RNA sequence: CGGCAGCCAGCCAAGCCGACCAGCUCCCUUCCUUCACAGGGACCUGGUGUGCAGCGGCUGCCAAUAGCCUUCUCCUCGGUACUGCAGGCAGCCUGUGGCGUGGAUGAGUUGCCCUAAGGGAGCUUGGAGACAGCC
Numbered sequence: 001c002g003g004c005a006g007c008c009a010g011c012c013a014a015g016c017c018g019a020c021c022a023g024c025u026c027c028c029u030u031c032c033u034u035c036a037c038a039g040g041g042a043c044c045u046g047g048u049g050u051g052c053a054g055c056g057g058c059u060g061c062c063a064a065u066a067g068c069c070u071u072c073u074c075c076u077c078g079g080u081a082c083u084g085c086a087g088g089c090a091g092c093c094u095g096u097g098g099c100g101u102g103g104a105u106g107a108g109u110u111g112c113c114c115u116a117a118g119g120g121a122g123c124u125u126g127g128a129g130a131c132a133g134c135c
Stems, first nucleotide, its partner, number of pairs: 003052003019048004025042004078123001080121001089111004094106001
Dot-bracket structure: ..(((.............((((..((((..........))))..)))).))).........................(.(........((((.(...........).)))).........).)............
The family of this 135-nucleotide RNA sequence from Oryctolagus cuniculus is "Small nucleolar RNA SNORA70". Pairs were carried over by alignment from the consensus structure, which was predicted with PFOLD. Rfam 15.1 lists 5,173 matches to the family in 383 species. Its family is annotated with nucleolus and RNA processing in the Gene Ontology. The source organism's lineage runs through Eukaryota, Opisthokonta, Dipnotetrapodomorpha, Mammalia and Oryctolagus. From the family's description: snoRNA U70 seems to be exclusive to mammals and is a member of the H/ACA class of snoRNA which contain H (ANANNA) and ACA box motifs. H/ACA box snoRNAs are involved in the conversion of uridines to pseudouridines (5-ribosyluracil) a constituent of structural RNAs (transfer, ribosomal, small nuclear, and small nucleolar). The literature on the family includes a 2000 paper in IUBMB Life by Charette and Gray, "Pseudouridine in RNA: what, where, how, and why".